Source information
The family of this 88-nucleotide sequence from Paenibacillus albidus is "BsrC". On this family, see Saito et al., Gene 2008: "Novel small RNA-encoding genes in the intergenic regions of Bacillus subtilis". Rfam classes the family as a small RNA. The 301 nucleotide sequence from Kouji Nakamura has been trimmed to a highly conserved ~85 nucleotide long core to form this family. Taxonomically the source falls in Paenibacillus (Bacteria, Bacillota, Bacilli, Caryophanales).
[Rfam]
RNA sequence: UCCUUCCAAUACGACAAAAGCCCUACCUCUCUUUUGUCCUUGCGGCUCCAUUGACCGCGCCAGUGUGAAUCGGAAUGCUAUGUUUGAA
Numbered sequence: 001u002c003c004u005u006c007c008a009a010u011a012c013g014a015c016a017a018a019a020g021c022c023c024u025a026c027c028u029c030u031c032u033u034u035u036g037u038c039c040u041u042g043c044g045g046c047u048c049c050a051u052u053g054a055c056c057g058c059g060c061c062a063g064u065g066u067g068a069a070u071c072g073g074a075a076u077g078c079u080a081u082g083u084u085u086g087a088a
Stems, first nucleotide, its partner, number of pairs: 034068003039063002041059005047053001